RNA: Mason-Pfizer monkey virus packaging signal
Organism: Sciurus carolinensis
RNA sequence: UGGCGCCCAACGCGGGGCCUCAGAUACAGGGGAAUUCACAAGGGAAGAGGCGUUUAAUCAUUCCGCCGAACAAAGCAGAAGUCAGUUCAAGAAAGAUCACUGCAGGAGCCUGCCACGUCGCUCUUAAAGGUACAGUAAUGACUAAUUAUGGGACAAGAAUUAGGUAAGCAUAAAGUUUUUGUUAAGCAAUUAAAAGAAGCCUUAAAGACAUGGAGAGUAAAGGUUAAGAGUAAUGAUCUUUUUAAGUUUUUUGACCUUAUUAAGGACACCUGUCCAU
Numbered sequence: 001u002g003g004c005g006c007c008c009a010a011c012g013c014g015g016g017g018c019c020u021c022a023g024a025u026a027c028a029g030g031g032g033a034a035u036u037c038a039c040a041a042g043g044g045a046a047g048a049g050g051c052g053u054u055u056a057a058u059c060a061u062u063c064c065g066c067c068g069a070a071c072a073a074a075g076c077a078g079a080a081g082u083c084a085g086u087u088c089a090a091g092a093a094a095g096a097u098c099a100c101u102g103c104a105g106g107a108g109c110c111u112g113c114c115a116c117g118u119c120g121c122u123c124u125u126a127a128a129g130g131u132a133c134a135g136u137a138a139u140g141a142c143u144a145a146u147u148a149u150g151g152g153a154c155a156a157g158a159a160u161u162a163g164g165u166a167a168g169c170a171u172a173a174a175g176u177u178u179u180u181g182u183u184a185a186g187c188a189a190u191u192a193a194a195a196g197a198a199g200c201c202u203u204a205a206a207g208a209c210a211u212g213g214a215g216a217g218u219a220a221a222g223g224u225u226a227a228g229a230g231u232a233a234u235g236a237u238c239u240u241u242u243u244a245a246g247u248u249u250u251u252u253g254a255c256c257u258u259a260u261u262a263a264g265g266a267c268a269c270c271u272g273u274c275c276a277u
Base pairs, nucleotide, nucleotide: 006032007031008030012027014025037049039047087130088129096122098120101117102116105113136156139153142151143150144149161204162203163202164200165199211253212252213251214250215249216248217247218246221239222238223237224236225235226234262277264275265274266273267272